Rfam assigns this 75-nucleotide RNA from Myotis lucifugus to the family "Small nucleolar RNA SNORD28".
The literature on the family includes a 1996 paper in Proc Natl Acad Sci U S A by Tycowski et al., "A small nucleolar RNA requirement for site-specific ribose methylation of rRNA in Xenopus".
Lineage of the source: Eukaryota > Chordata > Gnathostomata > Vespertilionidae > Myotis.
The base pairs follow the family's consensus structure, which was predicted with PFOLD.
Rfam's curators put it in the seed alignment.
RNA sequence: GUCAGAUGAUUUGAAUUGUUAUGCUGACGCUCUGUGAGGUAUGACAGGUAAUAGCAUGUUAGAGUUCUGAUGGCA
Number, nucleotide and partner (000 for none) at each position: 001g074002u073003c072004a071005g000006a000007u000008g000009a000010u000011u000012u000013g000014a000015a000016u000017u000018g000019u000020u000021a000022u000023g000024c000025u000026g000027a000028c000029g000030c000031u000032c000033u000034g000035u000036g000037a000038g000039g000040u000041a000042u000043g000044a000045c000046a000047g000048g000049u000050a000051a000052u000053a000054g000055c000056a000057u000058g000059u000060u000061a000062g000063a000064g000065u000066u000067c000068u000069g000070a000071u004072g003073g002074c001075a000